[Rfam]
RNA: Group II catalytic intron D1-D4-2
Organism: Orrella marina
RNA sequence: GAGGGAAGGUCCCUCGACAUCGCCAUUCAGGUGGAGGUGUCAAACCGCCUCAAGCGGCUGCGGUCAAGAGUCGUGGUCGUGAGCGUUGAGGAAACGGCAGGCGUGACCUGUCAGGU
Numbered sequence: 001g002a003g004g005g006a007a008g009g010u011c012c013c014u015c016g017a018c019a020u021c022g023c024c025a026u027u028c029a030g031g032u033g034g035a036g037g038u039g040u041c042a043a044a045c046c047g048c049c050u051c052a053a054g055c056g057g058c059u060g061c062g063g064u065c066a067a068g069a070g071u072c073g074u075g076g077u078c079g080u081g082a083g084c085g086u087u088g089a090g091g092a093a094a095c096g097g098c099a100g101g102c103g104u105g106a107c108c109u110g111u112c113a114g115g116u
Stems, first nucleotide, its partner, number of pairs: 001015005016041006023034004046115001048091006054080002057077003061073004096112006